MIR1878 microRNA precursor family: a 101-nucleotide sequence from Zea mays. Pairs were carried over by alignment from the consensus structure, which was predicted with RNAalifold. Lineage of the source: Eukaryota > Viridiplantae > Spermatophyta > Liliopsida > Zea. It scores 78 bits against the family's covariance model. Rfam links the family to the GO terms RISC complex and miRNA-mediated post-transcriptional gene silencing.

[Rfam]
RNA sequence: ACUAUUGUAAUCUUAGUCUGGAUACUAUAAAAAAUAGUAUGCGUAUUUUAAAAUAUGCUUACUAUAAAUUUGUAGUGUUCAGAUUAAGUUUAGAAUAGUUG
Numbered sequence: 001a002c003u004a005u006u007g008u009a010a011u012c013u014u015a016g017u018c019u020g021g022a023u024a025c026u027a028u029a030a031a032a033a034a035u036a037g038u039a040u041g042c043g044u045a046u047u048u049u050a051a052a053a054u055a056u057g058c059u060u061a062c063u064a065u066a067a068a069u070u071u072g073u074a075g076u077g078u079u080c081a082g083a084u085u086a087a088g089u090u091u092a093g094a095a096u097a098g099u100u101g
Stems, first nucleotide, its partner, number of pairs: 001099004009091002012088020040061002044057003048053001